[Rfam]
RNA sequence: UUCCGGCCUGUUCCCUGAGACCUCAAGUGUGAGUGUACUAUUGAUGCUUCACACCUGGGCUCUCCGGGUACCAGGACGGU
Numbered sequence: 001u002u003c004c005g006g007c008c009u010g011u012u013c014c015c016u017g018a019g020a021c022c023u024c025a026a027g028u029g030u031g032a033g034u035g036u037a038c039u040a041u042u043g044a045u046g047c048u049u050c051a052c053a054c055c056u057g058g059g060c061u062c063u064c065c066g067g068g069u070a071c072c073a074g075g076a077c078g079g080u
Stems, first nucleotide, its partner, number of pairs: 013068003017064004022059004027054006033047004

The family of this 80-nucleotide sequence from Caenorhabditis elegans is "lin-4 microRNA precursor family". Rfam's curators put it in the seed alignment. For this family Rfam cites "microRNAs: tiny regulators with great potential" (Ambros, Cell, 2001). The source organism's lineage runs through Eukaryota, Eumetazoa, Bilateria, Peloderinae and Caenorhabditis. Its family is annotated with RISC complex and miRNA-mediated post-transcriptional gene silencing in the Gene Ontology.